[Rfam]
RNA sequence: GUGAUACGGUGUUGGGGGCCACCCUGUGUUUUCUGUGAUUUAAAACGAGUGAACACAGCUGGUGGUAUCUCAGUACCUGAUCAUCC
Numbered sequence: 001g002u003g004a005u006a007c008g009g010u011g012u013u014g015g016g017g018g019c020c021a022c023c024c025u026g027u028g029u030u031u032u033c034u035g036u037g038a039u040u041u042a043a044a045a046c047g048a049g050u051g052a053a054c055a056c057a058g059c060u061g062g063u064g065g066u067a068u069c070u071c072a073g074u075a076c077c078u079g080a081u082c083a084u085c086c
Stems, first nucleotide, its partner, number of pairs: 008077005015071001016069002018066002021063003024058003028054001030052002
The family of this 86-nucleotide RNA from Acanthoscelides obtectus is "mir-317 microRNA precursor family". A search with the family's covariance model found it, with a score of 64 bits. The source organism's lineage runs through Eukaryota, Ecdysozoa, Coleoptera, Cucujiformia and Acanthoscelides.